[Rfam]
Rfam assigns this 107-nucleotide sequence from Hahella sp. CCB-MM4 to the family "TPP riboswitch aptamer (THI element)".
The match comes from Rfam's covariance-model search (81 bits).
The base pairs follow the family's consensus structure, which is taken from published work.

RNA sequence: ACACUCUUGUCGGGGUGCUGAUAAUUUUAUCGGCUGAGAUCACCAUAGGUGGGACCCGUUGACCUGAUCCGGAUAAUACCGGCGUAGGGAGCAAAGUUUUACUCUUC
Numbered sequence: 001a002c003a004c005u006c007u008u009g010u011c012g013g014g015g016u017g018c019u020g021a022u023a024a025u026u027u028u029a030u031c032g033g034c035u036g037a038g039a040u041c042a043c044c045a046u047a048g049g050u051g052g053g054a055c056c057c058g059u060u061g062a063c064c065u066g067a068u069c070c071g072g073a074u075a076a077u078a079c080c081g082g083c084g085u086a087g088g089g090a091g092c093a094a095a096g097u098u099u100u101a102c103u104c105u106u107c
Base pairs, nucleotide, nucleotide: 007094008093009092010091011058012057013056014055016052017034018033019032020031021030041051042050043049044048063088064087065086066085069082070081071080072079